[Rfam]
Shown here is a 150-nucleotide RNA sequence from Blastochloris viridis, a member of the family "Group II catalytic intron D1-D4-4". Rfam describes the family as follows. Group II introns are found in rRNA, tRNA and mRNA of organelles in fungi, plants and protists, and also in mRNA in bacteria. Taxonomically the source falls in Blastochloris (Bacteria, Pseudomonadati, Alphaproteobacteria, Blastochloridaceae). The match comes from Rfam's covariance-model search (67 bits). A reference for the family is Chu et al. (2001), "Control of branch-site choice by a group II intron", EMBO J.

RNA sequence: CAGUGGAGGAAGGAUCCAGCGAGAGAGUUGUCGAUUGAUCUGGUAGCUGACGAGGCGGUUCGGACGAGCAAUCGGACGGACCGAAGCCUCGUCACAAAGGCCGCUUUGGGCGGCCGAGCAAUCCCGCGGGCCUCUCUCUUCGAGACGAGA
Numbered sequence: 001c002a003g004u005g006g007a008g009g010a011a012g013g014a015u016c017c018a019g020c021g022a023g024a025g026a027g028u029u030g031u032c033g034a035u036u037g038a039u040c041u042g043g044u045a046g047c048u049g050a051c052g053a054g055g056c057g058g059u060u061c062g063g064a065c066g067a068g069c070a071a072u073c074g075g076a077c078g079g080a081c082c083g084a085a086g087c088c089u090c091g092u093c094a095c096a097a098a099g100g101c102c103g104c105u106u107u108g109g110g111c112g113g114c115c116g117a118g119c120a121a122u123c124c125c126g127c128g129g130g131c132c133u134c135u136c137u138c139u140u141c142g143a144g145a146c147g148a149g150a
Stems, first nucleotide, its partner, number of pairs: 020043001022041003050092005056083006065074001067072001099115006119142001

The base pairs follow the family's consensus structure. Rfam links the family to the GO term Group II intron splicing.